[Rfam]
RNA sequence: CCUCGAAAGGGCAAACCGGUGGAAACGCCGGGACGCAAAGCUAGGGGGCGGCGAAUCGAAAUCCUCGAUUUGACGUCAGCCCGGCCGCCGAAG
Numbered sequence: 001c002c003u004c005g006a007a008a009g010g011g012c013a014a015a016c017c018g019g020u021g022g023a024a025a026c027g028c029c030g031g032g033a034c035g036c037a038a039a040g041c042u043a044g045g046g047g048g049c050g051g052c053g054a055a056u057c058g059a060a061a062u063c064c065u066c067g068a069u070u071u072g073a074c075g076u077c078a079g080c081c082c083g084g085c086c087g088c089c090g091a092a093g
Stems, first nucleotide, its partner, number of pairs: 001093001003090001011036002016031006034079001040085003044082003047077003

Shown here is a 93-nucleotide RNA from Lacipirellula limnantheis, a member of the family "c-di-GMP-I-GGC riboswitch aptamer". Lineage of the source: Bacteria > Planctomycetia > Pirellulales > Lacipirellulaceae > Lacipirellula. It scores 62 bits against the family's covariance model. The family has 40 seed sequences and 1,298 matches in Rfam 15.1.